[Rfam]
RNA sequence: AAACUGCCCCCUAAGUAUUGACUUUUUUGCAGUUUUGGCCCCAUGCCAAUUUUGACCAAGUCAAAGCUGACGUCGACGCCACGUGUGUAUUUUUUUUUAAUUAUUAAAAAAUAAAUACACAGGUGGCGUCCAUGUGUGCAUUGACUUUGUCAAAAUUGAUCUAGGGGGCCAAAACUGCAAAAAAGUCAAUACUUAAGGGCGGUUU
Numbered sequence: 001a002a003a004c005u006g007c008c009c010c011c012u013a014a015g016u017a018u019u020g021a022c023u024u025u026u027u028u029g030c031a032g033u034u035u036u037g038g039c040c041c042c043a044u045g046c047c048a049a050u051u052u053u054g055a056c057c058a059a060g061u062c063a064a065a066g067c068u069g070a071c072g073u074c075g076a077c078g079c080c081a082c083g084u085g086u087g088u089a090u091u092u093u094u095u096u097u098u099a100a101u102u103a104u105u106a107a108a109a110a111a112u113a114a115a116u117a118c119a120c121a122g123g124u125g126g127c128g129u130c131c132a133u134g135u136g137u138g139c140a141u142u143g144a145c146u147u148u149g150u151c152a153a154a155a156u157u158g159a160u161c162u163a164g165g166g167g168g169c170c171a172a173a174a175c176u177g178c179a180a181a182a183a184a185g186u187c188a189a190u191a192c193u194u195a196a197g198g199g200c201g202g203u204u205u
Base pairs, nucleotide, nucleotide: 001205002204004202005201006200007199008198012195013194014193015192016191017190018189019188020187021186022185023184024183025182026181027180028179029178030177031176032175033174034173035172036171037170038169039168040167041166042165043162070135071134073132075130076129077128078127079126080125081124082123
RNA: MIR2619 microRNA precursor family
Organism: Medicago truncatula